[Rfam]
RNA: c-di-AMP riboswitch aptamer (ydaO/yuaA leader)
Organism: Priestia megaterium
RNA sequence: AACAAAUAUACGCUUAAUCAAUUAUGAGCGGGGGAUCCAAUAUUUUGUACGUAUGUACUAGGGGUGAAUCUCUUAACUGAGUAGGGUUACUUCCAUAACCCGAAUCCGACAGCUAACUCCGUAAGCGUUUUGGGAGUAAAA
Numbered sequence: 001a002a003c004a005a006a007u008a009u010a011c012g013c014u015u016a017a018u019c020a021a022u023u024a025u026g027a028g029c030g031g032g033g034g035a036u037c038c039a040a041u042a043u044u045u046u047g048u049a050c051g052u053a054u055g056u057a058c059u060a061g062g063g064g065u066g067a068a069u070c071u072c073u074u075a076a077c078u079g080a081g082u083a084g085g086g087u088u089a090c091u092u093c094c095a096u097a098a099c100c101c102g103a104a105u106c107c108g109a110c111a112g113c114u115a116a117c118u119c120c121g122u123a124a125g126c127g128u129u130u131u132g133g134g135a136g137u138a139a140a141a
Stems, first nucleotide, its partner, number of pairs: 011127004018027003028122006038061001062107003070081003084101004